[Rfam]
int-alpA RNA: a 77-nucleotide RNA sequence from Simplicispira metamorpha. Rfam's curators write: Acidobacteria (1 example), Planctomycetes (1 example), Proteobacteria.
RNA sequence: ACCCCAGAUAGACCCGCCUCGAAACCGGGCCGAAAAGCGGGACACCUUCACCCGCCUGCUGGAGUAUCUCGACAAGC
Number, nucleotide and partner (000 for none) at each position: 001a065002c064003c000004c062005c061006a060007g059008a000009u000010a000011g031012a000013c029014c028015c027016g026017c000018c000019u000020c000021g000022a000023a000024a000025c000026c016027g015028g014029g013030c000031c011032g000033a000034a000035a000036a000037g055038c054039g053040g052041g051042a000043c000044a000045c000046c076047u075048u074049c000050a000051c041052c040053c039054g038055c037056c000057u000058g000059c007060u006061g005062g004063a000064g002065u001066a000067u000068c000069u000070c000071g000072a000073c000074a048075a047076g046077c000